Shown here is a 139-nucleotide sequence from Phtheirospermum japonicum, a member of the family "mir-393 microRNA precursor family". NCBI's taxonomy places the organism under Eukaryota, Embryophyta, Spermatophyta, Pentapetalae, Phtheirospermum. For this family Rfam cites "Role of microRNAs and other sRNAs of plants in their changing environments" (Kruszka et al., J Plant Physiol, 2012). The family has 27 seed sequences and 1,052 matches in Rfam 15.1. A search with the family's covariance model found it, with a score of 93 bits.
RNA sequence: AUAGGAGGCGUCCAAAGGGAUCGCAUUGAUCCCAACUAGCUACUCAAUUUCACAGCAUUUUAUUUUUUUUAUUUGUUUUUUUAAUUAGUAUUUCUUAUAAAAUCACCUUGGAUCAUGCUAUCCCUUUGGAUUCAUCCUU
Numbered sequence: 001a002u003a004g005g006a007g008g009c010g011u012c013c014a015a016a017g018g019g020a021u022c023g024c025a026u027u028g029a030u031c032c033c034a035a036c037u038a039g040c041u042a043c044u045c046a047a048u049u050u051c052a053c054a055g056c057a058u059u060u061u062a063u064u065u066u067u068u069u070u071a072u073u074u075g076u077u078u079u080u081u082u083a084a085u086u087a088g089u090a091u092u093u094c095u096u097a098u099a100a101a102a103u104c105a106c107c108u109u110g111g112a113u114c115a116u117g118c119u120a121u122c123c124c125u126u127u128g129g130a131u132u133c134a135u136c137c138u139u
Stems, first nucleotide, its partner, number of pairs: 003138004008133001010131012023118004028114005